[Rfam]
The family of this 134-nucleotide sequence from Vibrio nigripulchritudo is "Histidine operon leader". On this family, see Kolter and Yanofsky, Annu Rev Genet 1982: "Attenuation in amino acid biosynthetic operons". The base pairs follow the family's consensus structure, which is taken from published work. Rfam describes the family as follows. At least 6 amino acid operons are known to be regulated by attenuation. In each a leader sequence of 150-200 bp is found upstream of the first gene in the operon. This leader sequence can assume two different secondary structures known as the terminator and the anti-terminator structure.

RNA sequence: UCAUCACCAUCAUCAUCCUGACUAGUCUUUCGGGAGGUUUACGCAUACCCGAGAGGCUCAGAACUCUCGGUGGUUGAAUCAAAAAUAUCAGAUUUAGACCCUCGGGAGAGCAAAACUCCCGAGGGUUUUUUCAU
Number, nucleotide and partner (000 for none) at each position: 001u000002c000003a000004u000005c000006a000007c000008c000009a046010u045011c000012a038013u037014c036015a000016u000017c034018c033019u032020g031021a030022c000023u000024a000025g000026u000027c000028u000029u000030u021031c020032g019033g018034g017035a000036g014037g013038u012039u000040u000041a000042c000043g000044c000045a010046u009047a000048c070049c000050c069051g068052a067053g066054a065055g064056g000057c000058u000059c000060a000061g000062a000063a000064c055065u054066c053067u052068c051069g050070g048071u000072g000073g000074u000075u000076g000077a000078a000079u000080c000081a000082a000083a000084a000085a000086u000087a000088u000089c000090a000091g000092a000093u000094u000095u000096a128097g127098a126099c125100c124101c123102u122103c121104g120105g119106g118107a117108g116109a000110g000111c000112a000113a000114a000115a000116c108117u107118c106119c105120c104121g103122a102123g101124g100125g099126u098127u097128u096129u000130u000131u000132c000133a000134u000